IS605-orfB-II RNA: a 152-nucleotide RNA. The base pairs follow the family's consensus structure, which is taken from published work. The family's RNA type in Rfam is small RNA. Rfam's curators put it in the seed alignment.
RNA sequence: CAUGAUUAACGAAAGUUAGGAUUGUAUAGAAAGUAGUCGCAGUCGCUUCAACUCCAACUUGUAGAUAUAAUCUUUGAUUUUAUUUACGAGUGAGGUGAGAAACAACUAUUAAAGUUGGGAAUUUUAAUUUUGUUAAGAAAUUAAAGACCUGU
Numbered sequence: 001c002a003u004g005a006u007u008a009a010c011g012a013a014a015g016u017u018a019g020g021a022u023u024g025u026a027u028a029g030a031a032a033g034u035a036g037u038c039g040c041a042g043u044c045g046c047u048u049c050a051a052c053u054c055c056a057a058c059u060u061g062u063a064g065a066u067a068u069a070a071u072c073u074u075u076g077a078u079u080u081u082a083u084u085u086a087c088g089a090g091u092g093a094g095g096u097g098a099g100a101a102a103c104a105a106c107u108a109u110u111a112a113a114g115u116u117g118g119g120a121a122u123u124u125u126a127a128u129u130u131u132g133u134u135a136a137g138a139a140a141u142u143a144a145a146g147a148c149c150u151g152u
Base pairs, nucleotide, nucleotide: 006019007018008017009016010015031048032047033046034045039152040151041150042149052099053098054097057091058090059089060088061087062086063085064084065083066082069079070078071077072076103117104116105115106114107113122146123145124144125143126142127141128140129139130138